Shown here is an 81-nucleotide RNA from Bemisia tabaci, a member of the family "mir-67 microRNA precursor family". Gene Ontology terms of the family: miRNA-mediated post-transcriptional gene silencing and RISC complex. A search with the family's covariance model found it, with a score of 69 bits. On this family, see Liu et al., BMC Genomics 2010: "MicroRNAs of Bombyx mori identified by Solexa sequencing". The family has 33 seed sequences and 196 matches in Rfam 15.1.
[Rfam]
RNA sequence: CGGGACGGUUACUCACUCAAUCUGGGUGUGAUGUGUUUACCUACGAUCCAUCACAACCUCCUUGAGUGAGCGAUUUCCUUA
Numbered sequence: 001c002g003g004g005a006c007g008g009u010u011a012c013u014c015a016c017u018c019a020a021u022c023u024g025g026g027u028g029u030g031a032u033g034u035g036u037u038u039a040c041c042u043a044c045g046a047u048c049c050a051u052c053a054c055a056a057c058c059u060c061c062u063u064g065a066g067u068g069a070g071c072g073a074u075u076u077c078c079u080u081a
Base pairs, nucleotide, nucleotide: 009072012070013069014068015067016066017065018064019063020062024058025057027055028054029053030052031051032050033049